[Rfam]
RNA sequence: CGAUUUUUGUACUAUGCAAAGGUACUGGGAACAUAUUUUGAAAGUUUUUACCAGCACCUAUGCUAGUGCAAACCUUGC
Number, nucleotide and partner (000 for none) at each position: 001c000002g000003a075004u000005u000006u072007u071008u070009g069010u068011a067012c066013u000014a000015u000016g063017c062018a061019a000020a059021g058022g057023u056024a000025c054026u053027g052028g000029g000030a000031a000032c000033a000034u000035a000036u000037u000038u000039u000040g000041a000042a000043a000044g000045u000046u000047u000048u000049u000050a000051c000052c027053a026054g025055c000056a023057c022058c021059u020060a000061u018062g017063c016064u000065a000066g012067u011068g010069c009070a008071a007072a006073c000074c000075u003076u000077g000078c000
About this RNA: Shown here is a 78-nucleotide RNA sequence from Caenorhabditis angaria, a member of the family "mir-239 microRNA precursor family". A search with the family's covariance model found it, with a score of 52 bits. Its family is annotated with RISC complex and miRNA-mediated post-transcriptional gene silencing in the Gene Ontology. For this family Rfam cites "Comprehensive discovery of endogenous Argonaute binding sites in Caenorhabditis elegans" (Zisoulis et al., Nat Struct Mol Biol, 2010).